Notes:
A member of the RNA family "Small nucleolar RNA Z278" from Dendrobium catenatum, 114 nucleotides long. A search with the family's covariance model found it, with a score of 77 bits. By type it is a C/D-box small nucleolar RNA. For this family Rfam cites "The high diversity of snoRNAs in plants: identification and comparative study of 120 snoRNA genes from Oryza sativa" (Chen et al., Nucleic Acids Res, 2003). The family's consensus secondary structure was predicted with PFOLD. Rfam's curators write: snoZ278 is a C/D box small nucleolar RNA. Its methylation guide targets have not been reported. Taxonomically the source falls in Dendrobium (Eukaryota, Euphyllophyta, Spermatophyta, Epidendroideae).

RNA sequence: ACUGAUGAUGUGCUGUCCAAAUUUAUGAGGUGUAGAAAGUUCAAGACCCUGUUUAUCAGGGAGAACCUCCUUGGACUACUGCAUCCAAAUGAUAUUAUUGGACUUUCCUGAGGC
Numbered sequence: 001a002c003u004g005a006u007g008a009u010g011u012g013c014u015g016u017c018c019a020a021a022u023u024u025a026u027g028a029g030g031u032g033u034a035g036a037a038a039g040u041u042c043a044a045g046a047c048c049c050u051g052u053u054u055a056u057c058a059g060g061g062a063g064a065a066c067c068u069c070c071u072u073g074g075a076c077u078a079c080u081g082c083a084u085c086c087a088a089a090u091g092a093u094a095u096u097a098u099u100g101g102a103c104u105u106u107c108c109u110g111a112g113g114c
Base pairs, nucleotide, nucleotide: 002113003112047061048060049059050058051057